RNA sequence: AAAUACACUGAGUGACUAGAUUAUUAUGAUAGCUGAAGGCAUAAUAAUCUGGUCACUCAGUGUAUAU
Numbered sequence: 001a002a003a004u005a006c007a008c009u010g011a012g013u014g015a016c017u018a019g020a021u022u023a024u025u026a027u028g029a030u031a032g033c034u035g036a037a038g039g040c041a042u043a044a045u046a047a048u049c050u051g052g053u054c055a056c057u058c059a060g061u062g063u064a065u066a067u
Base pairs, nucleotide, nucleotide: 004064005063006062007061008060009059010058011057012056013055014054015053016052017051019049020048021047022046023045024044025043026042027041028040

Notes:
The record is a 67-nucleotide sequence from Pipistrellus kuhlii, which matches "mir-9256 microRNA precursor family" in Rfam. Rfam 15.1 lists 31,772 matches to the family in 5 species. Gene Ontology terms of the family: RISC complex and miRNA-mediated post-transcriptional gene silencing. The source organism's lineage runs through Eukaryota, Sarcopterygii, Amniota, Yangochiroptera and Pipistrellus.